Shown here is a 130-nucleotide RNA sequence, a member of the family "Streptomyces RNA 5676". It is annotated as a small RNA. About the family: Identified by deep sequencing of transcriptome at the end of exponential growth phase. Appears longer on northern blot than sequencing transcript. This indicates processing step. Streptomyces specific.

RNA sequence: AGAUGAGAGAAACACCCCGCCCGCAGGGGACUGCGGGUGAAUCCGGGUCGGAGCUUCCUCGGCACCGUCCCGGGCGUGCUUUCGCGCACACCACUGGGGCAUCACGCUCCGGAACUCCUCACCGAUCGGA
Numbered sequence: 001a002g003a004u005g006a007g008a009g010a011a012a013c014a015c016c017c018c019g020c021c022c023g024c025a026g027g028g029g030a031c032u033g034c035g036g037g038u039g040a041a042u043c044c045g046g047g048u049c050g051g052a053g054c055u056u057c058c059u060c061g062g063c064a065c066c067g068u069c070c071c072g073g074g075c076g077u078g079c080u081u082u083c084g085c086g087c088a089c090a091c092c093a094c095u096g097g098g099g100c101a102u103c104a105c106g107c108u109c110c111g112g113a114a115c116u117c118c119u120c121a122c123c124g125a126u127c128g129g130a
Stems, first nucleotide, its partner, number of pairs: 004121004009117002018039009042074006049067003053063002076089004094112007122129002